Rfam assigns this 78-nucleotide RNA sequence from Synaphobranchus kaupii to the family "Mammalian CPEB3 ribozyme". Pairs were carried over by alignment from the consensus structure, which is taken from published work.

[Rfam]
RNA sequence: ACUGUUUCAUAGGGGGUCAAGAUAGGAGCGUCCUCGUCGCGGCCCUGGGAGUAUCAACAAGAUACUGCUAAUCCUAUC
Numbered sequence: 001a002c003u004g005u006u007u008c009a010u011a012g013g014g015g016g017u018c019a020a021g022a023u024a025g026g027a028g029c030g031u032c033c034u035c036g037u038c039g040c041g042g043c044c045c046u047g048g049g050a051g052u053a054u055c056a057a058c059a060a061g062a063u064a065c066u067g068c069u070a071a072u073c074c075u076a077u078c
Base pairs, nucleotide, nucleotide: 014045015044016043017042018041021078022077023076024075025074026073027072028040029039030038050066051065052064053063054062055061
The match comes from Rfam's covariance-model search (38 bits).